[Rfam]
RNA sequence: GCACAGAUGGUCAAGCGAAUGUUUUGUUUGUAUGUUCUUACAUACAAACAAAGCAUUUGUUUGACCAUCGGUGA
Dot-bracket structure: .(((.((((((((((((((((((((((((((((((....)))))))))))))))))))))))))))))).))).
Numbered sequence: 001g002c003a004c005a006g007a008u009g010g011u012c013a014a015g016c017g018a019a020u021g022u023u024u025u026g027u028u029u030g031u032a033u034g035u036u037c038u039u040a041c042a043u044a045c046a047a048a049c050a051a052a053g054c055a056u057u058u059g060u061u062u063g064a065c066c067a068u069c070g071g072u073g074a
Stems, first nucleotide, its partner, number of pairs: 002073003006069030
The family of this 74-nucleotide RNA sequence from Bombyx mori is "mir-2831 microRNA precursor family". Taxonomically the source falls in Bombyx (Eukaryota, Mandibulata, Panorpida, Amphiesmenoptera). The family's consensus secondary structure was predicted with RNAalifold.